[Rfam]
RNA sequence: UACUGUCUAUGAUGAAUGUUAAAACAAUGGGAAUCUCUCUGAAUAAGAGUGAAAGAGAGAUUUUGUACUGAGACGGUA
Dot-bracket structure: (((((((................................................................)))))))

The record is a 78-nucleotide sequence from Silurus meridionalis, which matches "Small nucleolar RNA SNORD79" in Rfam. snoRNA U79 or Z22 is found in intron 7 of the gas5 gene in humans and is also present in mice. It is annotated as a C/D-box small nucleolar RNA. A reference for the family is Galardi et al. (2002), "Purified box C/D snoRNPs are able to reproduce site-specific 2'-O-methylation of target RNA in vitro", Mol Cell Biol. Rfam links the family to the GO terms nucleolus and RNA processing. Rfam 15.1 lists 784 matches to the family in 651 species.